[Rfam]
RNA sequence: UGAGGCCUGUGAUGAUCUUUUGCAGAUAAUGCCUACAUUGUAUGACUUGUCAUGAUGAAAAAAAAAUGUCUAGGUCUGAGGCCGCU
Numbered sequence: 001u002g003a004g005g006c007c008u009g010u011g012a013u014g015a016u017c018u019u020u021u022g023c024a025g026a027u028a029a030u031g032c033c034u035a036c037a038u039u040g041u042a043u044g045a046c047u048u049g050u051c052a053u054g055a056u057g058a059a060a061a062a063a064a065a066a067u068g069u070c071u072a073g074g075u076c077u078g079a080g081g082c083c084g085c086u
Base pairs, nucleotide, nucleotide: 002085004083005082006081007080
Small nucleolar RNA SNORD34: an 86-nucleotide sequence from Carnegiea gigantea. Gene Ontology terms of the family: RNA processing and nucleolus. Rfam classes the family as a C/D-box small nucleolar RNA. For this family Rfam cites "Purified box C/D snoRNPs are able to reproduce site-specific 2'-O-methylation of target RNA in vitro" (Galardi et al., Mol Cell Biol, 2002). Rfam describes the family as follows. snoRNA U34 is found in intron 5 of the ribosomal protein L13a gene in humans. NCBI's taxonomy places the organism under Eukaryota, Embryophyta, Spermatophyta, Cactineae, Carnegiea.